The record is a 76-nucleotide RNA from Schistosoma mattheei, which matches "mir-3492 microRNA precursor family" in Rfam. Taxonomically the source falls in Schistosoma (Eukaryota, Opisthokonta, Metazoa, Schistosomatidae).
[Rfam]
RNA sequence: AGCCUUCUGUAUCCGUGAUGAGAUUUCGUCACACACCAGACCACAAGGGCUGAUGAGACCUCCAAAGCAUAAUAUU
Dot-bracket structure: .......(.((((..((..(((.(((((((.....................))))))).)))))..).)))..)..